A member of the RNA family "Histone 3' UTR stem-loop" from Albula glossodonta, 46 nucleotides long. Lineage of the source: Eukaryota > Euteleostomi > Teleostei > Elopomorpha > Albula. Pairs were carried over by alignment from the consensus structure, which is taken from published work. By type it is a cis-regulatory element. For this family Rfam cites "NMR structure and dynamics of the RNA-binding site for the histone mRNA stem-loop binding protein" (DeJong et al., RNA, 2002).
RNA sequence: CUAAAGGCUCUUUUCAGAGCCACCCAAUCCGCCCUGAAAUUGCAUU
Numbered sequence: 001c002u003a004a005a006g007g008c009u010c011u012u013u014u015c016a017g018a019g020c021c022a023c024c025c026a027a028u029c030c031g032c033c034c035u036g037a038a039a040u041u042g043c044a045u046u
Stems, first nucleotide, its partner, number of pairs: 006021006